Rfam assigns this 586-nucleotide part of an RNA from Oryza brachyantha to the family "Eukaryotic large subunit ribosomal RNA". Rfam's curators put it in the seed alignment. NCBI's taxonomy places the organism under Eukaryota, Streptophytina, Petrosaviidae, Oryzinae, Oryza.
[Rfam]
RNA sequence: GAAGACCCUGUUGAGCUUGACUUUAGUUUGGCUGCGUGCAACGACAUGAGAGGCGUAGCAUAAGUGGGAGGCCUUUUGGUCGACAGUGAAAUACCACUACUUUCAUUGUUGUUGUACUUACUCAAUUAAGCGGAAGGCCCACCUAGUGGGUGACUUUCGGGACAAGCAUACCGGCGCUGAGAAUGGUCCCUCGGCAGACCCGGUGUGUGAUCCGAUUUGAGGACACAGCCAGGCGGGGAGUUUGACUGGGGCGGUACAUCCAUCAAAGAAUAACGUGGGUGUCCUAAGACCAGCUCAGUGAGGCCAGAAACCUCGCGUAGAGUAUAUGGGCAAAAGCUGGUUUGAUCCUGAUGUUCAGUAUGCACAGGGACGGCGAAAGCCAGGCCCAGCGAUCCUUUUGGCUUGAAGAAUCUUCAGCAAGAGGUGUCAGAAAAGUUACCACAGGGAUAACUGGCUUGUGGCAGCCAAGCGUUCAUAGCGACGUCGCUUUUUGAUCCUUCGAUGUCGGCUCUUCCUAUCAUUGUGAAGCAGAAUUCACCAAGCGUUGGAUUGUUCACCCACAAAUAGGGAACGUGAGCUGGGUUUA
Numbered sequence: 001g002a003a004g005a006c007c008c009u010g011u012u013g014a015g016c017u018u019g020a021c022u023u024u025a026g027u028u029u030g031g032c033u034g035c036g037u038g039c040a041a042c043g044a045c046a047u048g049a050g051a052g053g054c055g056u057a058g059c060a061u062a063a064g065u066g067g068g069a070g071g072c073c074u075u076u077u078g079g080u081c082g083a084c085a086g087u088g089a090a091a092u093a094c095c096a097c098u099a100c101u102u103u104c105a106u107u108g109u110u111g112u113u114g115u116a117c118u119u120a121c122u123c124a125a126u127u128a129a130g131c132g133g134a135a136g137g138c139c140c141a142c143c144u145a146g147u148g149g150g151u152g153a154c155u156u157u158c159g160g161g162a163c164a165a166g167c168a169u170a171c172c173g174g175c176g177c178u179g180a181g182a183a184u185g186g187u188c189c190c191u192c193g194g195c196a197g198a199c200c201c202g203g204u205g206u207g208u209g210a211u212c213c214g215a216u217u218u219g220a221g222g223a224c225a226c227a228g229c230c231a232g233g234c235g236g237g238g239a240g241u242u243u244g245a246c247u248g249g250g251g252c253g254g255u256a257c258a259u260c261c262a263u264c265a266a267a268g269a270a271u272a273a274c275g276u277g278g279g280u281g282u283c284c285u286a287a288g289a290c291c292a293g294c295u296c297a298g299u300g301a302g303g304c305c306a307g308a309a310a311c312c313u314c315g316c317g318u319a320g321a322g323u324a325u326a327u328g329g330g331c332a333a334a335a336g337c338u339g340g341u342u343u344g345a346u347c348c349u350g351a352u353g354u355u356c357a358g359u360a361u362g363c364a365c366a367g368g369g370a371c372g373g374c375g376a377a378a379g380c381c382a383g384g385c386c387c388a389g390c391g392a393u394c395c396u397u398u399u400g401g402c403u404u405g406a407a408g409a410a411u412c413u414u415c416a417g418c419a420a421g422a423g424g425u426g427u428c429a430g431a432a433a434a435g436u437u438a439c440c441a442c443a444g445g446g447a448u449a450a451c452u453g454g455c456u457u458g459u460g461g462c463a464g465c466c467a468a469g470c471g472u473u474c475a476u477a478g479c480g481a482c483g484u485c486g487c488u489u490u491u492u493g494a495u496c497c498u499u500c501g502a503u504g505u506c507g508g509c510u511c512u513u514c515c516u517a518u519c520a521u522u523g524u525g526a527a528g529c530a531g532a533a534u535u536c537a538c539c540a541a542g543c544g545u546u547g548g549a550u551u552g553u554u555c556a557c558c559c560a561c562a563a564a565u566a567g568g569g570a571a572c573g574u575g576a577g578c579u580g581g582g583u584u585u586a
Base pairs, nucleotide, nucleotide: 007445008444009443010442012441013440014437015436016435017434018433020241021240022239023238027233028232029231030230031229032228033227036117037116038115039114040113041112042111043110044109045108046106047105048104049103050102051101052100063098064097065096066095067094070081071080121221122220123219124218125217131214132213133212134211138150139149140148141147142146166208167207168206169205170204171203172202173201174200244257245255246254247253258280259279260278261277262276263275283384284383289341290340291339292338293337294336295321296320298316299315300314301313302312303311322331323330346370347369348368349367352364353363354362372381373380374379395423396422397421398420399419400418403417404416405415406414454495456493458492460488461487462486464484465483469479470478506581507579508578509577510576511573512570513569514568515567516566519544523538524537525536526535527534546560547559548558550556